[Rfam]
The family of this 71-nucleotide sequence from Vairimorpha ceranae is "tRNA". Taxonomically the source falls in Vairimorpha (Eukaryota, Opisthokonta, Fungi, Microsporidia).
Nucleotides: 071
Base pairs, nucleotide, nucleotide: 001070002069003068004067005066006065007064010024011023012022013021026042027041028040029039030038047063048062049061050060051059
Number, partner (000 for none) and nucleotide at each position: 001070g002069g003068g004067g005066c006065c007064a008000u009000a010024g011023c012022u013021c014000a015000g016000g017000g018000g019000u020000a021013g022012a023011g024010c025000g026042g027041c028040u029039g030038c031000u032000u033000u034000g035000c036000a037000u038030g039029c040028a041027g042026u043000g044000u045000g046000c047063c048062c049061g050060g051059g052000u053000u054000c055000g056000a057000u058000u059051c060050c061049c062048g063047g064007u065006g066005g067004c068003u069002c070001c071000a
Gene Ontology term of the family: triplet codon-amino acid adaptor activity.
It is annotated as a transfer RNA.